[Rfam]
This 306-nucleotide sequence from Medicago truncatula belongs to the Rfam family "MIR2655 microRNA precursor family". NCBI's taxonomy places the organism under Eukaryota, Viridiplantae, rosids, Trifolieae, Medicago.
RNA sequence: UCCUUAACUAUUAAAAGUUUCGUUUCGGUCCCAUAACUUAUUUUUAAGUUUUCUUUUGGUCCCUUAACUAUUUAAAGUUUAGUUUUAGUCCCUAACUUAUUUUUUGGUAUUAUUUUGGUCCUUAACUCUAAUACAUUAAUCCUAACAUAAAGGACCAAAGUGGUUGACGGAGGAAGAGUUAAGGGACCAAAACGAAACCAAAAAGUAAGUUAAAGGACCAAAACGAAACUUUUAAUAGUUAAGGGACCAAAAUGAAACCAAAAAAUAAGUUAAGGGACCAAAACGAAACUUUUAAUAGUUAAGGGA
Numbered sequence: 001u002c003c004u005u006a007a008c009u010a011u012u013a014a015a016a017g018u019u020u021c022g023u024u025u026c027g028g029u030c031c032c033a034u035a036a037c038u039u040a041u042u043u044u045u046a047a048g049u050u051u052u053c054u055u056u057u058g059g060u061c062c063c064u065u066a067a068c069u070a071u072u073u074a075a076a077g078u079u080u081a082g083u084u085u086u087a088g089u090c091c092c093u094a095a096c097u098u099a100u101u102u103u104u105u106g107g108u109a110u111u112a113u114u115u116u117g118g119u120c121c122u123u124a125a126c127u128c129u130a131a132u133a134c135a136u137u138a139a140u141c142c143u144a145a146c147a148u149a150a151a152g153g154a155c156c157a158a159a160g161u162g163g164u165u166g167a168c169g170g171a172g173g174a175a176g177a178g179u180u181a182a183g184g185g186a187c188c189a190a191a192a193c194g195a196a197a198c199c200a201a202a203a204a205g206u207a208a209g210u211u212a213a214a215g216g217a218c219c220a221a222a223a224c225g226a227a228a229c230u231u232u233u234a235a236u237a238g239u240u241a242a243g244g245g246a247c248c249a250a251a252a253u254g255a256a257a258c259c260a261a262a263a264a265a266u267a268a269g270u271u272a273a274g275g276g277a278c279c280a281a282a283a284c285g286a287a288a289c290u291u292u293u294a295a296u297a298g299u300u301a302a303g304g305g306a
Stems, first nucleotide, its partner, number of pairs: 002304007023283003027279003031275002034272010045261001